The record is a 181-nucleotide RNA from Shewanella loihica, which matches "6S / SsrS RNA" in Rfam. The sequence is in the family's curated seed alignment. On this family, see Wassarman and Storz, Cell 2000: "6S RNA regulates E. coli RNA polymerase activity". The source organism's lineage runs through Bacteria, Pseudomonadota, Alteromonadales, Shewanella and Shewanella loihica. E. coli 6S RNA was the first non coding RNA to be sequenced, but its function was unknown until recently. It consists of 184 nucleotides that fold into an extended hairpin structure with a large single-stranded internal bulge.

RNA sequence: UGCUCCCUGUGGUGUGCGUGAGUCGGUUAUGUCCCUGUGCCGAUAUUUACAAACUCAGGGUGAAUGUUUUGAUGACAUUGCGCAAGCUCGGCGCGAACCGAGAAGCCUUAGGAUUUGAUCAUUUACCCGCCUUGAACCUACGGUUCAAGGGCUACACCGGUAACGGCAUCUUGGGGAGCAA
Numbered sequence: 001u002g003c004u005c006c007c008u009g010u011g012g013u014g015u016g017c018g019u020g021a022g023u024c025g026g027u028u029a030u031g032u033c034c035c036u037g038u039g040c041c042g043a044u045a046u047u048u049a050c051a052a053a054c055u056c057a058g059g060g061u062g063a064a065u066g067u068u069u070u071g072a073u074g075a076c077a078u079u080g081c082g083c084a085a086g087c088u089c090g091g092c093g094c095g096a097a098c099c100g101a102g103a104a105g106c107c108u109u110a111g112g113a114u115u116u117g118a119u120c121a122u123u124u125a126c127c128c129g130c131c132u133u134g135a136a137c138c139u140a141c142g143g144u145u146c147a148a149g150g151g152c153u154a155c156a157c158c159g160g161u162a163a164c165g166g167c168a169u170c171u172u173g174g175g176g177a178g179c180a181a
Stems, first nucleotide, its partner, number of pairs: 002179008011170005017165003031152004036147002039144003058128003062124005069118004074114001076112001082106002087102005